[Rfam]
RNA sequence: GCUGCGCCUAGAUCGGCCAAUCGAAAACCGGGCAAACCCUACCCUGCUGGCGCUGCUCCCUCAUUCAACAGGG
Numbered sequence: 001g002c003u004g005c006g007c008c009u010a011g012a013u014c015g016g017c018c019a020a021u022c023g024a025a026a027a028c029c030g031g032g033c034a035a036a037c038c039c040u041a042c043c044c045u046g047c048u049g050g051c052g053c054u055g056c057u058c059c060c061u062c063a064u065u066c067a068a069c070a071g072g073g
Stems, first nucleotide, its partner, number of pairs: 001056002004053005011022003029046004037073004